The record is a 124-nucleotide RNA from Scheffersomyces stipitis, which matches "U5 spliceosomal RNA" in Rfam.
U5 RNA is a component of both types of known spliceosome. The precise function of this molecule is unknown, though it is known that the 5' loop is required for splice site selection and p220 binding, and that both the 3' stem-loop and the Sm site are important for Sm protein binding and cap methylation.
By type it is a spliceosomal small nuclear RNA.
[Rfam]
RNA sequence: AUCGCCAGGAGAUCAAUUUCAAAAUCGUACAUGGUUCUUGCCUUUUACCAGAACCAUCCGGGAAUUGUCUUCAAUACAAAUGGUGUAUCAACUAGUUUUUGGAAACCUUUCCACUUCAAAUCAC
Numbered sequence: 001a002u003c004g005c006c007a008g009g010a011g012a013u014c015a016a017u018u019u020c021a022a023a024a025u026c027g028u029a030c031a032u033g034g035u036u037c038u039u040g041c042c043u044u045u046u047a048c049c050a051g052a053a054c055c056a057u058c059c060g061g062g063a064a065u066u067g068u069c070u071u072c073a074a075u076a077c078a079a080a081u082g083g084u085g086u087a088u089c090a091a092c093u094a095g096u097u098u099u100u101g102g103a104a105a106c107c108u109u110u111c112c113a114c115u116u117c118a119a120a121u122c123a124c
Stems, first nucleotide, its partner, number of pairs: 003085004009071003014067007031057008108120003
Gene Ontology terms of the family: spliceosomal tri-snRNP complex assembly and U5 snRNP. A reference for the family is Zwieb (1997), "The uRNA database", Nucleic Acids Res.